RNA sequence: GUAAUAGUUUUGGUAAACUCAAGGGUGGUUCGGUGUCAUCCCCAAAAAGGGAGGGGGUGGUGCCUAUAUGAUGACGGUGUAUGAAGCUUUGAUGCUGAUGGUCACGUUCGGUAUGUUGAUCGUGGCGAUGCUGUCACAAAAAUAAAUCACCCUUGAGUUGACGGCUCGAGCGGGUGAUUUAUUUUCUCCUGGCCGAUCCCCCUUGCAGGGAACCAAGCUAUUGCAGGACCGUAGGUGUUAGCGCACCUGCG
Dot-bracket structure: (((((.(((.((((.(.((((((((..(((.....(((.((((..........)))))))............(((((((.......(............)..........((............))..))))))).........)))..))))))))..........((.........)).........).)))).((((.......))))....))).))))).....(((((((((....)))))))))
BsrG: a 251-nucleotide RNA from Alteribacillus bidgolensis.
On this family, see Muller et al., RNA Biol 2016: "A multistress responsive type I toxin-antitoxin system: bsrE/SR5 from the B. subtilis chromosome".
It is annotated as a small RNA.
It scores 86 bits against the family's covariance model.
The source organism's lineage runs through Bacteria, Bacillati, Bacilli, Caryophanales and Alteribacillus.